[Rfam]
RNA sequence: GCCACAUGAUGCUACUCAGACAGCAUUAGCACUCAGUGCGAGGAUGACCUGGUAUCUAUCACCCGAGACUGAUGGCU
Numbered sequence: 001g002c003c004a005c006a007u008g009a010u011g012c013u014a015c016u017c018a019g020a021c022a023g024c025a026u027u028a029g030c031a032c033u034c035a036g037u038g039c040g041a042g043g044a045u046g047a048c049c050u051g052g053u054a055u056c057u058a059u060c061a062c063c064c065g066a067g068a069c070u071g072a073u074g075g076c077u
Stems, first nucleotide, its partner, number of pairs: 001076004029039004
The family of this 77-nucleotide RNA from Hemibagrus wyckioides is "Small nucleolar RNA SNORD83". Rfam links the family to the GO terms RNA processing and nucleolus. A reference for the family is Jady and Kiss (2000), "Characterisation of the U83 and U84 small nucleolar RNAs: two novel 2'-O-ribose methylation guide RNAs that lack complementarities to ribosomal RNAs", Nucleic Acids Res. A search with the family's covariance model found it, with a score of 52 bits. NCBI's taxonomy places the organism under Eukaryota, Craniata, Gnathostomata, Characiphysae, Hemibagrus.